[Rfam]
RNA sequence: GGCGUGGGCCGUGACUGGCGCGUUCGGAUGGUUGACCAUCGUGGAGCGGCUCCGUCGAGAUGACGUAUGCCGUGCGCCUGGGCCUCUUCG
Number, nucleotide and partner (000 for none) at each position: 001g000002g000003c054004g000005u000006g052007g051008g050009c049010c048011g047012u046013g000014a000015c043016u000017g078018g077019c076020g075021c074022g000023u000024u000025c000026g000027g000028a039029u038030g037031g036032u000033u000034g000035a000036c031037c030038a029039u028040c000041g000042u000043g015044g000045a000046g012047c011048g010049g009050c008051u007052c006053c000054g003055u000056c000057g000058a000059g000060a000061u000062g000063a000064c000065g000066u000067a085068u000069g083070c082071c081072g000073u000074g021075c020076g019077c018078c017079u000080g000081g071082g070083c069084c000085u067086c000087u000088u000089c000090g000
RNA: ZMP/ZTP riboswitch aptamer (pfl RNA motif)